Nucleotides: 108
Base pairs, nucleotide, nucleotide: 006096007095008094009093010092011058012057013056014055016052017030018029019028020027021026037051038050039049040048041047064089065088066087067086070083071082072081073080
Number, partner (000 for none) and nucleotide at each position: 001000u002000u003000u004000c005000a006096c007095c008094a009093c010092u011058a012057g013056g014055g015000g016052u017030g018029c019028c020027a021026u022000c023000a024000a025000a026021a027020u028019g029018g030017c031000u032000g033000a034000g035000a036000u037051u038050a039049a040048a041047g042000u043000g044000u045000g046000a047041c048040u049039u050038u051037a052016a053000g054000a055014c056013u057012c058011u059000u060000a061000g062000a063000a064089c065088c066087u067086g068000a069000u070083c071082u072081g073080g074000u075000u076000u077000a078000a079000a080073c081072c082071a083070g084000c085000g086067u087066a088065g089064g090000g091000a092010a093009g094008u095007g096006g097000g098000a099000u100000a101000g102000a103000g104000g105000a106000a107000a108000u
This 108-nucleotide sequence from Mesobacillus persicus belongs to the Rfam family "TPP riboswitch aptamer (THI element)". Pairs were carried over by alignment from the consensus structure, which is taken from published work. A search with the family's covariance model found it, with a score of 86 bits. Rfam's curators write: Vitamin B(1) in its active form thiamin pyrophosphate (TPP) is an essential coenzyme that is synthesised by coupling of pyrimidine and thiazole moieties in bacteria.